Description: M-box riboswitch aptamer (ykoK leader): a 168-nucleotide RNA sequence from Salisediminibacterium halotolerans. On this family, see Barrick et al., Proc Natl Acad Sci U S A 2004: "New RNA motifs suggest an expanded scope for riboswitches in bacterial genetic control". A search with the family's covariance model found it, with a score of 150 bits. Rfam 15.1 lists 1,095 matches to the family in 932 species. Rfam describes the family as follows. M-box riboswitch, also know as ykoK leader is described as a metaloregulatory RNA that sense divalent metals and function as a genetic control element of genes related to divalent metal transport in bacteria.
[Rfam]
RNA sequence: AAAAGCCCUCGUUAGGUGAGGCUCCUGUACGGAGAUAUGCUGCUGCCCAAAAACGUCCAAAGACGCCAAUGGGUCAACAGAGAUCAUCGACCUAAGGUGAUAUCUAAUGCAGCUGACAGCAAACUGUCUAUGCCGUGCAGUGCUAAAGCUCUACGAAUGGAGGUACAU
Numbered sequence: 001a002a003a004a005g006c007c008c009u010c011g012u013u014a015g016g017u018g019a020g021g022c023u024c025c026u027g028u029a030c031g032g033a034g035a036u037a038u039g040c041u042g043c044u045g046c047c048c049a050a051a052a053a054c055g056u057c058c059a060a061a062g063a064c065g066c067c068a069a070u071g072g073g074u075c076a077a078c079a080g081a082g083a084u085c086a087u088c089g090a091c092c093u094a095a096g097g098u099g100a101u102a103u104c105u106a107a108u109g110c111a112g113c114u115g116a117c118a119g120c121a122a123a124c125u126g127u128c129u130a131u132g133c134c135g136u137g138c139a140g141u142g143c144u145a146a147a148g149c150u151c152u153a154c155g156a157a158u159g160g161a162g163g164u165a166c167a168u
Stems, first nucleotide, its partner, number of pairs: 005164003009160002011154002013095001015150003020144003025140008039113005045074005054065004080104002083101001086098003115128003